[Rfam]
RNA: U5 spliceosomal RNA
Organism: Citrus sinensis
RNA sequence: AGCCGCGCGGUGAGCACAGAGCGAACUAUUCUUUCGCCUUUUACUAAAGAAUACCGUGUGCUCGCCGCUUUUAAGCGGCAUACGCCAAUUUUUUGAGGGGCGAUCCUCUGCGAACGCU
Number, nucleotide and partner (000 for none) at each position: 001a000002g000003c078004c077005g076006c075007g000008c067009g066010g065011u064012g063013a062014g061015c060016a059017c058018a057019g000020a000021g000022c000023g000024a000025a000026c000027u053028a052029u051030u050031c049032u048033u047034u046035c000036g000037c000038c000039u000040u000041u000042u000043a000044c000045u000046a034047a033048a032049g031050a030051a029052u028053a027054c000055c000056g000057u018058g017059u016060g015061c014062u013063c012064g011065c010066c009067g008068c000069u000070u000071u000072u000073a000074a000075g006076c005077g004078g003079c000080a000081u000082a000083c000084g000085c000086c000087a000088a000089u000090u000091u000092u000093u000094u000095g000096a118097g000098g000099g000100g117101c116102g115103a000104u113105c112106c000107u000108c000109u000110g000111c000112g105113a104114a000115c102116g101117c100118u096